[Rfam]
RNA sequence: AAGCGGUAAUGAGAGAGAGACAGGGAACAAGCAGAGCAUGGAUUGAGUUUACUAAAACAUUAAACGACUCUGUUUUGUCUCUACCCAUGCACUGCCUCUUCCCUGGCUCCCUCUUUUUUUCUCUAU
Number, nucleotide and partner (000 for none) at each position: 001a000002a000003g000004c000005g000006g000007u000008a000009a000010u000011g000012a000013g000014a000015g000016a000017g109018a108019g107020a000021c105022a104023g103024g102025g101026a100027a099028c000029a097030a000031g095032c094033a093034g092035a000036g090037c089038a088039u087040g086041g085042a000043u000044u000045g081046a080047g000048u000049u000050u000051a000052c000053u000054a000055a000056a000057a000058c000059a000060u000061u000062a000063a000064a000065c000066g000067a000068c000069u000070c000071u000072g000073u000074u000075u000076u000077g000078u000079c000080u046081c045082u000083a000084c000085c041086c040087a039088u038089g037090c036091a000092c034093u033094g032095c031096c000097u029098c000099u027100u026101c025102c024103c023104u022105g021106g000107c019108u018109c017110c000111c000112u000113c000114u000115u000116u000117u000118u000119u000120u000121c000122u000123c000124u000125a000126u000

Rfam assigns this 126-nucleotide RNA to the family "MIR408 microRNA precursor family". A reference for the family is Sunkar and Zhu (2004), "Novel and stress-regulated microRNAs and other small RNAs from Arabidopsis", Plant Cell.